[Rfam]
RNA sequence: UCUCCCGCGAGGGGAAUCUGGAGGAAGUCCGAGGCAAAACGCUGGUCUGAGGAACAGGAAGCGGAUACGAGGCGUCACGAUGGGGUGAGAUGGCUCAAAUCAUCAAAGCCCGGUACUUGCACGGAACGUCAUGACGUAAAUCCGACAGGCAUAAGCGGGACAAAUUCGUCGGGAAC
Numbered sequence: 001u002c003u004c005c006c007g008c009g010a011g012g013g014g015a016a017u018c019u020g021g022a023g024g025a026a027g028u029c030c031g032a033g034g035c036a037a038a039a040c041g042c043u044g045g046u047c048u049g050a051g052g053a054a055c056a057g058g059a060a061g062c063g064g065a066u067a068c069g070a071g072g073c074g075u076c077a078c079g080a081u082g083g084g085g086u087g088a089g090a091u092g093g094c095u096c097a098a099a100u101c102a103u104c105a106a107a108g109c110c111c112g113g114u115a116c117u118u119g120c121a122c123g124g125a126a127c128g129u130c131a132u133g134a135c136g137u138a139a140a141u142c143c144g145a146c147a148g149g150c151a152u153a154a155g156c157g158g159g160a161c162a163a164a165u166u167c168g169u170c171g172g173g174a175a176c
Base pairs, nucleotide, nucleotide: 001015002014004013005012006011027176028175030173034169035168040157041156042155043154045150046149047148048147049146062144063143064142065141066140072137073136074135076133077132079130080129081128082127083111084110085109086108089104090103091102092101
Rfam assigns this 176-nucleotide RNA sequence from Aidingimonas halophila to the family "Group II catalytic intron D1-D4-3". Rfam links the family to the GO term Group II intron splicing. Taxonomically the source falls in Aidingimonas (Bacteria, Pseudomonadati, Pseudomonadota, Gammaproteobacteria).